[Rfam]
RNA sequence: GGGUUUUCCCCGGGGAGCCGGCUGAACCCUCUGAUUGAGGAUUCGAGGCUGAGAGGUGGGCGUUGCGUCCCACGACCCGUUGAACCUGAACCCGUUAGCACGGGCGGAGGGAGGGUAUUUGCAGGCUGG
Numbered sequence: 001g002g003g004u005u006u007u008c009c010c011c012g013g014g015g016a017g018c019c020g021g022c023u024g025a026a027c028c029c030u031c032u033g034a035u036u037g038a039g040g041a042u043u044c045g046a047g048g049c050u051g052a053g054a055g056g057u058g059g060g061c062g063u064u065g066c067g068u069c070c071c072a073c074g075a076c077c078c079g080u081u082g083a084a085c086c087u088g089a090a091c092c093c094g095u096u097a098g099c100a101c102g103g104g105c106g107g108a109g110g111g112a113g114g115g116u117a118u119u120u121g122c123a124g125g126c127u128g129g
Stems, first nucleotide, its partner, number of pairs: 006117001008115003011079004017049003056073005085110003091104004